About this RNA:
The family of this 69-nucleotide RNA sequence from Sedimentitalea arenosa is "L2-Alphaproteobacteria ribosomal protein leader". NCBI's taxonomy places the organism under Bacteria, Pseudomonadota, Alphaproteobacteria, Paracoccaceae, Sedimentitalea. By type it is a cis-regulatory leader.

[Rfam]
RNA sequence: GGGGACCUUCGGGGCCCUUCAUACCAUAGGCGGGACCUGUCCCGCCGUUCAGCAAACGGAAGACAGUAA
Numbered sequence: 001g002g003g004g005a006c007c008u009u010c011g012g013g014g015c016c017c018u019u020c021a022u023a024c025c026a027u028a029g030g031c032g033g034g035a036c037c038u039g040u041c042c043c044g045c046c047g048u049u050c051a052g053c054a055a056a057c058g059g060a061a062g063a064c065a066g067u068a069a
Stems, first nucleotide, its partner, number of pairs: 001018004006014003029046007